[Rfam]
RNA sequence: GCGGUCGCACACCCUGUAGCUGCUUAGGGGCGCAGUGCAUAUUCCUCCCCUACGCUGCUACAUUGUAUGUGAUCACAA
Numbered sequence: 001g002c003g004g005u006c007g008c009a010c011a012c013c014c015u016g017u018a019g020c021u022g023c024u025u026a027g028g029g030g031c032g033c034a035g036u037g038c039a040u041a042u043u044c045c046u047c048c049c050c051u052a053c054g055c056u057g058c059u060a061c062a063u064u065g066u067a068u069g070u071g072a073u074c075a076c077a078a
Base pairs, nucleotide, nucleotide: 001076003074004073005072006071007070008069009068011066012065015062016061017060018059019058020057022055023054026051027050028049029048030047032045034043035042